[Rfam]
RNA sequence: AAUAACGAUAGAGGCGCGGUCUAUUACGAGUAAUCUGUUAUAUAUGGUCUGGCACAGUAACAGAUGAAAAGAAUAACCGCCGAAGUGUCGGUUUCCGGCCAGAAGGGGCCGAUGCUGGGCUGUUGCAGAAUAUGCAACAGACUGUCACUGUUAGGGUGGAGAGCUAUCGUGUGG
Numbered sequence: 001a002a003u004a005a006c007g008a009u010a011g012a013g014g015c016g017c018g019g020u021c022u023a024u025u026a027c028g029a030g031u032a033a034u035c036u037g038u039u040a041u042a043u044a045u046g047g048u049c050u051g052g053c054a055c056a057g058u059a060a061c062a063g064a065u066g067a068a069a070a071g072a073a074u075a076a077c078c079g080c081c082g083a084a085g086u087g088u089c090g091g092u093u094u095c096c097g098g099c100c101a102g103a104a105g106g107g108g109c110c111g112a113u114g115c116u117g118g119g120c121u122g123u124u125g126c127a128g129a130a131u132a133u134g135c136a137a138c139a140g141a142c143u144g145u146c147a148c149u150g151u152u153a154g155g156g157u158g159g160a161g162a163g164c165u166a167u168c169g170u171g172u173g174g
Stems, first nucleotide, its partner, number of pairs: 006169006016080005022075004033065008084116012117143002120140008145159005
A member of the RNA family "Lysine riboswitch aptamer" from Capillibacterium thermochitinicola, 174 nucleotides long. A search with the family's covariance model found it, with a score of 106 bits. NCBI's taxonomy places the organism under Bacteria, Bacillati, Bacillota, Capillibacterium.